[Rfam]
RNA sequence: GCAUCGUGAUGAUGAAUUUGAAAUUGUCCGACUCAUUUCAUGAAGGAUUAAUAUUACCUCCUACUCAUACUGA
Numbered sequence: 001g002c003a004u005c006g007u008g009a010u011g012a013u014g015a016a017u018u019u020g021a022a023a024u025u026g027u028c029c030g031a032c033u034c035a036u037u038u039c040a041u042g043a044a045g046g047a048u049u050a051a052u053a054u055u056a057c058c059u060c061c062u063a064c065u066c067a068u069a070c071u072g073a
Base pairs, nucleotide, nucleotide: 006068007067008066009065027047028046032042
Dot-bracket structure: .....((((.................((...(.........)...)).................)))).....
A member of the RNA family "Small nucleolar RNA Z105" from Manihot esculenta, 73 nucleotides long. Taxonomically the source falls in Manihot (Eukaryota, Tracheophyta, fabids, Crotonoideae). Rfam classes the family as a C/D-box small nucleolar RNA. Gene Ontology terms of the family: nucleolus and RNA processing. On this family, see Chen et al., Nucleic Acids Res 2003: "The high diversity of snoRNAs in plants: identification and comparative study of 120 snoRNA genes from Oryza sativa". It scores 45 bits against the family's covariance model. The base pairs follow the family's consensus structure, which was predicted with CMfinder.